[Rfam]
RNA sequence: GGAUUUGGUCUGCGUUUGAGUAUCCUUGCGGGCUUUUCAAACUAAUAGUAUACCAAAUCAAUUUAUAGGAGAUGUGUUAGUGGCCCGUAUCGCUGGCAUUAACGUUCCUGAU
Numbered sequence: 001g002g003a004u005u006u007g008g009u010c011u012g013c014g015u016u017u018g019a020g021u022a023u024c025c026u027u028g029c030g031g032g033c034u035u036u037u038c039a040a041a042c043u044a045a046u047a048g049u050a051u052a053c054c055a056a057a058u059c060a061a062u063u064u065a066u067a068g069g070a071g072a073u074g075u076g077u078u079a080g081u082g083g084c085c086c087g088u089a090u091c092g093c094u095g096g097c098a099u100u101a102a103c104g105u106u107c108c109u110g111a112u
Stems, first nucleotide, its partner, number of pairs: 004057006011050003024096002029087004037111003
Rfam assigns this 112-nucleotide RNA sequence from Pseudoalteromonas xiamenensis to the family "Alpha operon ribosome binding site". Rfam links the family to the GO term ribosome binding. Taxonomically the source falls in Pseudoalteromonas (Bacteria, Pseudomonadota, Gammaproteobacteria, Alteromonadales). Rfam describes the family as follows. The bacterial alpha operon ribosome binding site is surrounded by this complex pseudoknotted structure. The base pairs follow the family's consensus structure, which is taken from published work. By type it is a cis-regulatory element.